RNA sequence: UUUUAAAUAAAGGAGCAAUAGCCUCUUUCUUGUUCUAUCAAGAGGGCGUUAUUGCUCCUUUAUU
Numbered sequence: 001u002u003u004u005a006a007a008u009a010a011a012g013g014a015g016c017a018a019u020a021g022c023c024u025c026u027u028u029c030u031u032g033u034u035c036u037a038u039c040a041a042g043a044g045g046g047c048g049u050u051a052u053u054g055c056u057c058c059u060u061u062a063u064u
Base pairs, nucleotide, nucleotide: 009061010060011059012058013057014056015055016054017053018052019051020050021049024046025045027044028043029042030041031040
Source information: Plastid-psbA-1 3UTR RNA: a 64-nucleotide sequence from Nymphoides crenata. Taxonomically the source falls in Nymphoides (Eukaryota, Spermatophyta, Mesangiospermae, Gunneridae). Rfam's curators write: Plastid psbA-1 is a non-coding RNA (ncRNA) present in plastids. It was identified in inverted repeat sequences in the 3 prime untranslate region (3UTR) of photosystem II quinone-binding protein (psbA). A reference for the family is Richter et al. (2023), "Retrograde signaling in plants: A critical review focusing on the GUN pathway and beyond", Plant Commun. Rfam classes the family as a cis-regulatory element. Rfam's curators put it in the seed alignment. Pairs were carried over by alignment from the consensus structure, which was predicted with LocARNA. Clan: Plastid-psbA 3UTR RNA clan.